[Rfam]
RNA sequence: CUCUUAUCAAGAGCGGCGGAGGGAUUAGGCCCUACGAUGCCCAGCAACCAGCAAGCGACCAACUUGCAAAGGUGCUACUUCCUACAGAUUCGUGCAAACGAUCUGAAAGAUAAGGG
Numbered sequence: 001c002u003c004u005u006a007u008c009a010a011g012a013g014c015g016g017c018g019g020a021g022g023g024a025u026u027a028g029g030c031c032c033u034a035c036g037a038u039g040c041c042c043a044g045c046a047a048c049c050a051g052c053a054a055g056c057g058a059c060c061a062a063c064u065u066g067c068a069a070a071g072g073u074g075c076u077a078c079u080u081c082c083u084a085c086a087g088a089u090u091c092g093u094g095c096a097a098a099c100g101a102u103c104u105g106a107a108a109g110a111u112a113a114g115g116g
Stems, first nucleotide, its partner, number of pairs: 001116008013042001015041003021032003026084004043076004048072002051067005080108001085105006
RNA: SAM riboswitch aptamer (S box leader)